[Rfam]
RNA sequence: CAUAGGCUCAACUGGCACAGCCUGUGCAACGUUAACUGGGACAAGAUUACUGGCCGCUCCUUCAAUGGCGAUGGGGCAGCUGCCUGACUGAUCAGGACCUGGACAAAGGCGUCCUUGCCGCGUGCGCGGUGAGGAUGCC
Numbered sequence: 001c002a003u004a005g006g007c008u009c010a011a012c013u014g015g016c017a018c019a020g021c022c023u024g025u026g027c028a029a030c031g032u033u034a035a036c037u038g039g040g041a042c043a044a045g046a047u048u049a050c051u052g053g054c055c056g057c058u059c060c061u062u063c064a065a066u067g068g069c070g071a072u073g074g075g076g077c078a079g080c081u082g083c084c085u086g087a088c089u090g091a092u093c094a095g096g097a098c099c100u101g102g103a104c105a106a107a108g109g110c111g112u113c114c115u116u117g118c119c120g121c122g123u124g125c126g127c128g129g130u131g132a133g134g135a136u137g138c139c
Stems, first nucleotide, its partner, number of pairs: 013105002015027003053080002056077002059074002062071002083096004108139007116132001117130005
A member of the RNA family "Pseudomonas sRNA P11" from Halopseudomonas xinjiangensis, 139 nucleotides long. The organism belongs to Halopseudomonas, within Bacteria. It scores 78 bits against the family's covariance model. Pairs were carried over by alignment from the consensus structure, which was predicted with RNAalifold. For this family Rfam cites "Identification of 17 Pseudomonas aeruginosa sRNAs and prediction of sRNA-encoding genes in 10 diverse pathogens using the bioinformatic tool sRNAPredict2" (Livny et al., Nucleic Acids Res, 2006). Rfam describes the family as follows. This small RNA (sRNA) was computationally identified in the genome of the opportunistic pathogen Pseudomonas aeruginosa and its expression verified by northern blot analysis. P11 is located between a putative threonine protein kinase and putative nitrate reductase and appears to be conserved in several Pseudomonas species. P11 has a predicted Rho independent terminator at the 3'end but the function of P11 is unknown.